Rfam assigns this 80-nucleotide RNA sequence to the family "RT-18 RNA".

RNA sequence: UAGCGCUUGCUAAAAAUAAAGUCGCAACUGGAUUAGUUUAGUAGCUUCUUUUAAGUGAAAAACUGAUAGACAAAAAUAAG
Numbered sequence: 001u002a003g004c005g006c007u008u009g010c011u012a013a014a015a016a017u018a019a020a021g022u023c024g025c026a027a028c029u030g031g032a033u034u035a036g037u038u039u040a041g042u043a044g045c046u047u048c049u050u051u052u053a054a055g056u057g058a059a060a061a062a063c064u065g066a067u068a069g070a071c072a073a074a075a076a077u078a079a080g
Stems, first nucleotide, its partner, number of pairs: 001012004021071003032067007044056002